[Rfam]
This 89-nucleotide RNA sequence from Noviherbaspirillum sedimenti belongs to the Rfam family "Glycine riboswitch aptamer". Taxonomically the source falls in Noviherbaspirillum (Bacteria, Pseudomonadati, Betaproteobacteria, Oxalobacteraceae). The base pairs follow the family's consensus structure.
RNA sequence: CGAACUUGAUCGGGAGAGCGCAGCAACCAGCUGCCGCCGAAGGGGCUAAUACCCAACAAACUCUCAGGCAAAAGGACCGGUCAAACGGG
Numbered sequence: 001c002g003a004a005c006u007u008g009a010u011c012g013g014g015a016g017a018g019c020g021c022a023g024c025a026a027c028c029a030g031c032u033g034c035c036g037c038c039g040a041a042g043g044g045g046c047u048a049a050u051a052c053c054c055a056a057c058a059a060a061c062u063c064u065c066a067g068g069c070a071a072a073a074g075g076a077c078c079g080g081u082c083a084a085a086c087g088g089g
Base pairs, nucleotide, nucleotide: 006084007083008082009081010080011079012078013077020034021033022032023031036069037068038067039065040064043063044062045061050055

Overview:
A search with the family's covariance model found it, with a score of 67 bits.